[Rfam]
Rfam assigns this 170-nucleotide RNA from Idiomarina sp. MD25a to the family "Lysine riboswitch aptamer". Pairs were carried over by alignment from the consensus structure, which is taken from published work.
RNA sequence: GGCUUAGGAAGAGGUGCGGUUGCUAGGUAGCAUUGCUGAUUGAGUUCCAACACUCAGGUAAUGUGAGGGAGUCAACCGCCGAGGUAAUGCAUUGGUUGGAUAAUGUGUUACCGACUGUUGGGUUUGAAAACCUGCAGUUGUCACCUAUCGGGUGGAGAGCUUCUGGCUGC
Numbered sequence: 001g002g003c004u005u006a007g008g009a010a011g012a013g014g015u016g017c018g019g020u021u022g023c024u025a026g027g028u029a030g031c032a033u034u035g036c037u038g039a040u041u042g043a044g045u046u047c048c049a050a051c052a053c054u055c056a057g058g059u060a061a062u063g064u065g066a067g068g069g070a071g072u073c074a075a076c077c078g079c080c081g082a083g084g085u086a087a088u089g090c091a092u093u094g095g096u097u098g099g100a101u102a103a104u105g106u107g108u109u110a111c112c113g114a115c116u117g118u119u120g121g122g123u124u125u126g127a128a129a130a131c132c133u134g135c136a137g138u139u140g141u142c143a144c145c146u147a148u149c150g151g152g153u154g155g156a157g158a159g160c161u162u163c164u165g166g167c168u169g170c
Stems, first nucleotide, its partner, number of pairs: 007164005016079007024071001030064008083112012113139006120132002123129001141155005